Rfam assigns this 54-nucleotide RNA from Dryobates pubescens to the family "Editing element of GABA-3 exon 9". A search with the family's covariance model found it, with a score of 77 bits. NCBI's taxonomy places the organism under Eukaryota, Chordata, Sauropsida, Archelosauria, Dryobates. The family has 52 seed sequences and 4,208 matches in Rfam 15.1.

RNA sequence: AAAGUGGCCUAUGCGACGGCUAUGGAUUGGUUCAUUGCUGUUUGCUACGCCUUU
Numbered sequence: 001a002a003a004g005u006g007g008c009c010u011a012u013g014c015g016a017c018g019g020c021u022a023u024g025g026a027u028u029g030g031u032u033c034a035u036u037g038c039u040g041u042u043u044g045c046u047a048c049g050c051c052u053u054u
Stems, first nucleotide, its partner, number of pairs: 001054003006051003010047002013045002015042006022035005